[Rfam]
Shown here is a 189-nucleotide RNA sequence from Anopheles gambiae, a member of the family "drz-agam-2-2 ribozyme".

RNA sequence: AUCGGCUAGAGGCUCUGCAAUGGGAUGGGAUCCGAAGUCCUUCGAGGGAUAAUACGGGCUCUCCCAUCCAACUCCUAUUCCGACACGUCCUCGUCGUGCAGAGUGGUAACGUGUGCCACCACAUAUCCAAGCUUGGGUACACGGGCUUGACCCAACUCCUUAGGCGGAUUGCAAUCCAAGAGGAGGGUG
Numbered sequence: 001a002u003c004g005g006c007u008a009g010a011g012g013c014u015c016u017g018c019a020a021u022g023g024g025a026u027g028g029g030a031u032c033c034g035a036a037g038u039c040c041u042u043c044g045a046g047g048g049a050u051a052a053u054a055c056g057g058g059c060u061c062u063c064c065c066a067u068c069c070a071a072c073u074c075c076u077a078u079u080c081c082g083a084c085a086c087g088u089c090c091u092c093g094u095c096g097u098g099c100a101g102a103g104u105g106g107u108a109a110c111g112u113g114u115g116c117c118a119c120c121a122c123a124u125a126u127c128c129a130a131g132c133u134u135g136g137g138u139a140c141a142c143g144g145g146c147u148u149g150a151c152c153c154a155a156c157u158c159c160u161u162a163g164g165c166g167g168a169u170u171g172c173a174a175u176c177c178a179a180g181a182g183g184a185g186g187g188u189g
Stems, first nucleotide, its partner, number of pairs: 011104001014101001023069008032058002073189001075187002078185002081183001084180001085097003089106002109175001114173002119171001125169004133155006157164002
Dot-bracket structure: ..........{..{........((((((((.((.......................))...))))))))...(.((.((.(..((((.[[....)))...}..}]]..(....((...(.....((((....((((((...........)))))).((....)).)))).))).)....)..))))).)
It scores 121 bits against the family's covariance model. Pairs were carried over by alignment from the consensus structure, which is taken from published work. The source organism's lineage runs through Eukaryota, Panarthropoda, Allotriocarida, Panorpida and Anopheles gambiae. The literature on the family includes a 2009 paper in Science by Webb et al., "Widespread occurrence of self-cleaving ribozymes". Rfam links the family to the GO term catalytic activity.